A member of the RNA family "Guanidine-I riboswitch aptamer" from Methylorubrum rhodinum, 111 nucleotides long.
Rfam links the family to the GO term regulation of gene expression.
RNA sequence: CGAGUUGAUCGCUAGGGUUCCUGCAUCGAGUGCGAUGCGAACGGUCCGAGAGCGGUCGCCGCGGCGGGAGACAUCCGCCCGGAUGCACGGCGGGAUAAAAGCCCGGGAGAC
Dot-bracket structure: ......((((((..((...(((((((((....))))))..).)).))....))))))(.(..(((((.......)))))..).).(.[...(((.......))).)..]..

This family represents a conserved RNA structure found upstream of the ykkC and yxkD genes in Bacillus subtilis and related genes in other bacteria. Lineage of the source: Bacteria > Pseudomonadota > Alphaproteobacteria > Hyphomicrobiales > Methylorubrum.